[Rfam]
RNA: Small nucleolar RNA Z199
Organism: Lupinus albus
RNA sequence: GAAUCAGGUGAUGAGAAAAAUAACUGCAACAAUAUGAUUGGAUUCAUUCCAAUGAUUCACUCGUAUUUAAGUCUCUGAUGAUU
Number, nucleotide and partner (000 for none) at each position: 001g083002a082003a000004u081005c080006a079007g000008g000009u000010g000011a000012u000013g000014a000015g000016a000017a000018a000019a000020a000021u000022a000023a000024c000025u000026g000027c000028a000029a000030c000031a000032a000033u000034a000035u000036g000037a000038u000039u051040g050041g049042a048043u000044u000045c000046a000047u000048u042049c041050c040051a039052a000053u000054g000055a000056u000057u000058c000059a000060c000061u000062c000063g000064u000065a000066u000067u000068u000069a000070a000071g000072u000073c000074u000075c000076u000077g000078a000079u006080g005081a004082u002083u001